Small nucleolar RNA SNORA4: a 143-nucleotide RNA sequence from Chrysochloris asiatica. About the family: ACA4 is a member of the H/ACA class of snoRNA that guide the sites of modification of uridines to pseudouridines.
RNA sequence: CUACCAAAAGUUAUUUUGGGGGCAAAGGUUUUUUAAUAACCUUUUACCAUUUUGGGCUAUUUGGGAGAAUAAAGAAAAGACCACACUCCACAGUGGGCUAUAUAACACUUAGUAUAGCUUACUACUAUUUUGUGGCCUACAUU
Numbered sequence: 001c002u003a004c005c006a007a008a009a010g011u012u013a014u015u016u017u018g019g020g021g022g023c024a025a026a027g028g029u030u031u032u033u034u035a036a037u038a039a040c041c042u043u044u045u046a047c048c049a050u051u052u053u054g055g056g057c058u059a060u061u062u063g064g065g066a067g068a069a070u071a072a073a074g075a076a077a078a079g080a081c082c083a084c085a086c087u088c089c090a091c092a093g094u095g096g097g098c099u100a101u102a103u104a105a106c107a108c109u110u111a112g113u114a115u116a117g118c119u120u121a122c123u124a125c126u127a128u129u130u131u132g133u134g135g136c137c138u139a140c141a142u143u
Stems, first nucleotide, its partner, number of pairs: 004064005012059002015056003018052002022048001025045001026042004078138002081135005092123012
The base pairs follow the family's consensus structure, which was predicted with PFOLD. Clan: SNORA4 clan. Rfam links the family to the GO terms RNA processing and nucleolus. The organism belongs to Chrysochloris, within Eukaryota.